[Rfam]
RNA sequence: UUGCCCGGCAACGGCCUGGUCUGUGCCAAGUGUUUGCUGACGCAACCCCCACUGGCUGGGGCUUGGCCAUCGGCCAUCAGCGCAUGCGUGAAACCUUUGUGGCUCCUCUGCCGAUCCAUACUGCAGAACUCCUAGCCGCUUGUUUUGCUCGCAGCCGGUCUGGAGCAAAACUCAUCGGGACUGACAAUUCUGUCGUCCUUUCUCAGAAAUAUACAUCCUUUCCAUAGCUGCUAGGUUGUACUGCCAACUAGAUUCUUCG
Numbered sequence: 001u002u003g004c005c006c007g008g009c010a011a012c013g014g015c016c017u018g019g020u021c022u023g024u025g026c027c028a029a030g031u032g033u034u035u036g037c038u039g040a041c042g043c044a045a046c047c048c049c050c051a052c053u054g055g056c057u058g059g060g061g062c063u064u065g066g067c068c069a070u071c072g073g074c075c076a077u078c079a080g081c082g083c084a085u086g087c088g089u090g091a092a093a094c095c096u097u098u099g100u101g102g103c104u105c106c107u108c109u110g111c112c113g114a115u116c117c118a119u120a121c122u123g124c125a126g127a128a129c130u131c132c133u134a135g136c137c138g139c140u141u142g143u144u145u146u147g148c149u150c151g152c153a154g155c156c157g158g159u160c161u162g163g164a165g166c167a168a169a170a171c172u173c174a175u176c177g178g179g180a181c182u183g184a185c186a187a188u189u190c191u192g193u194c195g196u197c198c199u200u201u202c203u204c205a206g207a208a209a210u211a212u213a214c215a216u217c218c219u220u221u222c223c224a225u226a227g228c229u230g231c232u233a234g235g236u237u238g239u240a241c242u243g244c245c246a247a248c249u250a251g252a253u254u255c256u257u258c259g
Base pairs, nucleotide, nucleotide: 001045002044003043004042006039007038008037009036010035011034014031015030017028018027019026020025050090051089052088055087056086059083061081062080063079064076065075066074067073068072101112102111103110113254114253115252116251118249123244124243125242126241128239129238131235132234133233134232135231136230138228139227140226142171143170144169145168146167147166148165149164150163152162153161154160177198178197179196182195183194184193185192186191206222207221208220209219
The record is a 259-nucleotide sequence from Orthohepadnavirus hominoidei, which matches "Hepatitis B virus post-transcriptional regulatory element 1151-1410" in Rfam. Gene Ontology terms of the family: nuclear export and regulation of RNA splicing. The base pairs follow the family's consensus structure, which was predicted with RNAfold. Rfam describes the family as follows. Part of 500 base pair long HBV PRE, contains nucleotides 1151-1410. Enhances nuclear export of intronless transcripts and represses the splicing mechanism to a comparable degree to that of the full-length PRE. It was proposed to be the core HBV PRE element. contains 3 known regulatory elements: PRE SL-alpha (nucleotides 1292-1321), human La protein binding site (nucleotide 1275-1291) and SRE-1 (nucleotides 1252-1348). The literature on the family includes a 2015 paper in Mol Biol Rep by Visootsat et al., "A conserved RNA structural element within the hepatitis B virus post-transcriptional regulatory element enhance nuclear export of intronless transcripts and repress the splicing mechanism". Rfam's curators put it in the seed alignment.